[Rfam]
Shown here is a 65-nucleotide sequence from Gallus gallus, a member of the family "mir-302 microRNA precursor family".
RNA sequence: CCUCCGCUUUAACAUGGAGGUACCUGCUGCCUACAAAAGUAAGUGCUUCCAUGUUUCAGUGGUGG
Numbered sequence: 001c002c003u004c005c006g007c008u009u010u011a012a013c014a015u016g017g018a019g020g021u022a023c024c025u026g027c028u029g030c031c032u033a034c035a036a037a038a039g040u041a042a043g044u045g046c047u048u049c050c051a052u053g054u055u056u057c058a059g060u061g062g063u064g065g
Stems, first nucleotide, its partner, number of pairs: 001065002005061004011055013025041004
The sequence is in the family's curated seed alignment.
Pairs were carried over by alignment from the consensus structure, which was predicted with RNAalifold.